Background: Rfam assigns this 116-nucleotide RNA sequence from Aegilops tauschii to the family "Small nucleolar RNA snoR104". On this family, see Marker et al., Curr Biol 2002: "Experimental RNomics: identification of 140 candidates for small non-messenger RNAs in the plant Arabidopsis thaliana". The family's RNA type in Rfam is H/ACA-box small nucleolar RNA. The base pairs follow the family's consensus structure, which was predicted with WAR. Rfam 15.1 lists 612 matches to the family in 228 species. Its family is annotated with nucleolus and RNA processing in the Gene Ontology.
RNA sequence: UGGUGGCAUUCAAAGGACAACAUGCCUACCUGAUACAAUCUUCCUAUAGUAAAAUUGUCGUUUCCUGCUUGUGGUAUUCUAAGCAAGUUCUGCAAGUCUCAAAUGAUAAUAAGACA
Dot-bracket structure: .((.(((((............)))).).)).........................(((........((((((((.(((.......))).))))))))...........))).....